This 113-nucleotide RNA sequence from Glycine max belongs to the Rfam family "MIR1520 microRNA precursor family". The match comes from Rfam's covariance-model search (88 bits). Taxonomically the source falls in Glycine subgen. Soja (Eukaryota, Euphyllophyta, eudicotyledons, fabids). Clan: MIR1520 microRNA precursor clan.

RNA sequence: UUCUCAUUGGAUGACAAUUGUCACGUAUAUUUUGAUUGGUCAAUGCAAAUAAGCAUUUCAUCUUUCAUUGAAUUGAUAUCCAAUCAGAACAUGACACGUGACAGUUGUUAUCC
Numbered sequence: 001u002u003c004u005c006a007u008u009g010g011a012u013g014a015c016a017a018u019u020g021u022c023a024c025g026u027a028u029a030u031u032u033u034g035a036u037u038g039g040u041c042a043a044u045g046c047a048a049a050u051a052a053g054c055a056u057u058u059c060a061u062c063u064u065u066c067a068u069u070g071a072a073u074u075g076a077u078a079u080c081c082a083a084u085c086a087g088a089a090c091a092u093g094a095c096a097c098g099u100g101a102c103a104g105u106u107g108u109u110a111u112c113c
Stems, first nucleotide, its partner, number of pairs: 020102004025097001026093003030089004035084003